[Rfam]
A member of the RNA family "Bacterial RNase P class A" from Amygdalobacter nucleatus, 342 nucleotides long.
The match comes from Rfam's covariance-model search (238 bits).
NCBI's taxonomy places the organism under Bacteria, Bacillati, Clostridia, Oscillospiraceae, Amygdalobacter.
The family's RNA type in Rfam is ribozyme.

RNA sequence: UCAGAUUAGUGAAUAAACGCGCUACUUAGCUGAAAAGCUAAGUAGUGAGGAAAGUCCGAGCACCACGAUCAAAAACGCCAGAUAACGUCUGGUAAAGGUGACUUUAAGGAUAGUGCAACAGAAAUAGACAGCAGCUUAGGCUGUGAUGGUGGAAAGGCGAGGUAAGAGCUCACCGGAACUGAUAGGAGUCAGUUGCCCUGUAAACCCCGUUUGGUGCAACACUGUGGAAAGCGAUAAUAUGAUCGUAACGCUUUAGGAGGUGGCUUUCGAGCUAGUUGGCAACAACUAGAAUAGAUAAAUGUUUAUUCACGACAGAACUCGGCUUAUAGCUAGUCUGAGAUG
Numbered sequence: 001u002c003a004g005a006u007u008a009g010u011g012a013a014u015a016a017a018c019g020c021g022c023u024a025c026u027u028a029g030c031u032g033a034a035a036a037g038c039u040a041a042g043u044a045g046u047g048a049g050g051a052a053a054g055u056c057c058g059a060g061c062a063c064c065a066c067g068a069u070c071a072a073a074a075a076c077g078c079c080a081g082a083u084a085a086c087g088u089c090u091g092g093u094a095a096a097g098g099u100g101a102c103u104u105u106a107a108g109g110a111u112a113g114u115g116c117a118a119c120a121g122a123a124a125u126a127g128a129c130a131g132c133a134g135c136u137u138a139g140g141c142u143g144u145g146a147u148g149g150u151g152g153a154a155a156g157g158c159g160a161g162g163u164a165a166g167a168g169c170u171c172a173c174c175g176g177a178a179c180u181g182a183u184a185g186g187a188g189u190c191a192g193u194u195g196c197c198c199u200g201u202a203a204a205c206c207c208c209g210u211u212u213g214g215u216g217c218a219a220c221a222c223u224g225u226g227g228a229a230a231g232c233g234a235u236a237a238u239a240u241g242a243u244c245g246u247a248a249c250g251c252u253u254u255a256g257g258a259g260g261u262g263g264c265u266u267u268c269g270a271g272c273u274a275g276u277u278g279g280c281a282a283c284a285a286c287u288a289g290a291a292u293a294g295a296u297a298a299a300u301g302u303u304u305a306u307u308c309a310c311g312a313c314a315g316a317a318c319u320c321g322g323c324u325u326a327u328a329g330c331u332a333g334u335c336u337g338a339g340a341u342g
Stems, first nucleotide, its partner, number of pairs: 001338010011327001012307007020047011052325003056322005061216004073212005078092005093107001094105004108207002113205002115201003129148002131144005156174002159171003176196001177194007220262003228254006238247003272289007